The record is a 51-nucleotide sequence, which matches "ssNA-helicase RNA" in Rfam.
RNA sequence: UGCCAUAAGGGGGGACUAUUACCCCUUAUGGCACAUACGUCGCACGUCGCA
Numbered sequence: 001u002g003c004c005a006u007a008a009g010g011g012g013g014g015a016c017u018a019u020u021a022c023c024c025c026u027u028a029u030g031g032c033a034c035a036u037a038c039g040u041c042g043c044a045c046g047u048c049g050c051a
Stems, first nucleotide, its partner, number of pairs: 001033011